[Rfam]
RNA sequence: GAAGCCCGCCAGGCCGCCGCUGGUGCAAUCUGAAAAGACGACGCUUGCGUCGGGCCGAAAGGCCGCACUGGAGGAACGUCCGGACUGCACAGGGCAGCGUAGGAGCUAACGGCUCUCCACCGCGAGGUGAGGAUCAGAGCAACAGAGACGAGUCCCGGGGGAGUGCCGCAAGGUAGACCACCGGGGGUGAAACGGGCAAUCUCUACGCGCAGCAAUACCAAAUAGGCCAGCCACGCAAGCAGGGCAACCUCUUGCGACCUUGUGGCUCCGCAAGGAGAGCUGGCGGGUAGGUAGCACCGAGCCGUCUGGCGACAGACGGCCCAGAGGAAUGGCGGUCACACCGGGGGCGACCCCGGUGCACAGAAUCCGGCGUAUCGGCGGGCUUCACAC
Numbered sequence: 001g002a003a004g005c006c007c008g009c010c011a012g013g014c015c016g017c018c019g020c021u022g023g024u025g026c027a028a029u030c031u032g033a034a035a036a037g038a039c040g041a042c043g044c045u046u047g048c049g050u051c052g053g054g055c056c057g058a059a060a061g062g063c064c065g066c067a068c069u070g071g072a073g074g075a076a077c078g079u080c081c082g083g084a085c086u087g088c089a090c091a092g093g094g095c096a097g098c099g100u101a102g103g104a105g106c107u108a109a110c111g112g113c114u115c116u117c118c119a120c121c122g123c124g125a126g127g128u129g130a131g132g133a134u135c136a137g138a139g140c141a142a143c144a145g146a147g148a149c150g151a152g153u154c155c156c157g158g159g160g161g162a163g164u165g166c167c168g169c170a171a172g173g174u175a176g177a178c179c180a181c182c183g184g185g186g187g188u189g190a191a192a193c194g195g196g197c198a199a200u201c202u203c204u205a206c207g208c209g210c211a212g213c214a215a216u217a218c219c220a221a222a223u224a225g226g227c228c229a230g231c232c233a234c235g236c237a238a239g240c241a242g243g244g245c246a247a248c249c250u251c252u253u254g255c256g257a258c259c260u261u262g263u264g265g266c267u268c269c270g271c272a273a274g275g276a277g278a279g280c281u282g283g284c285g286g287g288u289a290g291g292u293a294g295c296a297c298c299g300a301g302c303c304g305u306c307u308g309g310c311g312a313c314a315g316a317c318g319g320c321c322c323a324g325a326g327g328a329a330u331g332g333c334g335g336u337c338a339c340a341c342c343g344g345g346g347g348c349g350a351c352c353c354c355g356g357u358g359c360a361c362a363g364a365a366u367c368c369g370g371c372g373u374a375u376c377g378g379c380g381g382g383c384u385u386c387a388c389a390c
Base pairs, nucleotide, nucleotide: 001386002385003384004383005382006381007380008379009378010377011375012337013336014335015334016333017332018331020071021070022069023068024067025066026065076373077372078371080370081369082368083367084366085212086211087210088209092268093267094266095265097208098207099206100205101204102116103115104114105113106112117131118129119128120127121126132203133202137201138200139197140196154186155185156183157182158181160179161178216293217292218291219290226284227283228282229281230280231279259274260273261272262271263270301320302319303318304317305316306315307314308313
Dot-bracket structure: ((((((((((((((((((.(((((((......................................)))))))....[[[.[[[[[((((...[[[[.((((((((((.....)))))(((((....)))).)((...((((.............(((((.((................)).))).)).........))..)))))))))))))...((((......((((((...........................(((((.]]]].)))))....)))))).....)))).......((((((((....))))))))..........)))))))............................]]]]]]]].).))))))))))....

The family of this 390-nucleotide RNA sequence from Pseudorhodoferax sp. Leaf274 is "Bacterial RNase P class A". Rfam classes the family as a ribozyme. The family's consensus secondary structure is taken from published work.